[Rfam]
RNA sequence: GCCAGGCGCAGAGUGGUGUGGGUCUGUAGUCCCAGCUACUCGGAAGGCUAAGGUGGGAGGAUUGCUUGAGCCCAGGAGUUCUGGGCUGUAGUGCACUAUGCCAACCAGGUGUCCGCACUAAGUUCGGCAUCAAUAUGGUGACCUCCUGGGAGGGGACCACCAGGUUGCCUAAAGAGGGGUGAACUGGCCCAGGCCGGAAAUGGAGCAGGUCAAAACUCCCGUGCUGAACAAUAGUGAGAUCGCUCCUAUGAAUAGCCACUGCAUUCCAGCCUGGCAAUAUAGCGAGACCCCAUCCCUA
Numbered sequence: 001g002c003c004a005g006g007c008g009c010a011g012a013g014u015g016g017u018g019u020g021g022g023u024c025u026g027u028a029g030u031c032c033c034a035g036c037u038a039c040u041c042g043g044a045a046g047g048c049u050a051a052g053g054u055g056g057g058a059g060g061a062u063u064g065c066u067u068g069a070g071c072c073c074a075g076g077a078g079u080u081c082u083g084g085g086c087u088g089u090a091g092u093g094c095a096c097u098a099u100g101c102c103a104a105c106c107a108g109g110u111g112u113c114c115g116c117a118c119u120a121a122g123u124u125c126g127g128c129a130u131c132a133a134u135a136u137g138g139u140g141a142c143c144u145c146c147u148g149g150g151a152g153g154g155g156a157c158c159a160c161c162a163g164g165u166u167g168c169c170u171a172a173a174g175a176g177g178g179g180u181g182a183a184c185u186g187g188c189c190c191a192g193g194c195c196g197g198a199a200a201u202g203g204a205g206c207a208g209g210u211c212a213a214a215a216c217u218c219c220c221g222u223g224c225u226g227a228a229c230a231a232u233a234g235u236g237a238g239a240u241c242g243c244u245c246c247u248a249u250g251a252a253u254a255g256c257c258a259c260u261g262c263a264u265u266c267c268a269g270c271c272u273g274g275c276a277a278u279a280u281a282g283c284g285a286g287a288c289c290c291c292a293u294c295c296c297u298a
Stems, first nucleotide, its partner, number of pairs: 001048003004025004009020002030045001032043001052294006062285005070275002073273004081269005087263007096255004101250001107247003111243002113238001116236005122229009131167004136162005143155003168174001176219005185212005194203003

The record is a 298-nucleotide RNA from Piliocolobus tephrosceles, which matches "Metazoan signal recognition particle RNA" in Rfam. A reference for the family is Wild et al. (2002), "Towards the structure of the mammalian signal recognition particle", Curr Opin Struct Biol. The family has 91 seed sequences and 383,523 matches in Rfam 15.1. About the family: The signal recognition particle (SRP) is a universally conserved ribonucleoprotein. It is involved in the co-translational targeting of proteins to membranes. The eukaryotic SRP consists of a 300-nucleotide 7S RNA and six proteins: SRPs 72, 68, 54, 19, 14, and 9. Archaeal SRP consists of a 7S RNA and homologues of the eukaryotic SRP19 and SRP54 proteins.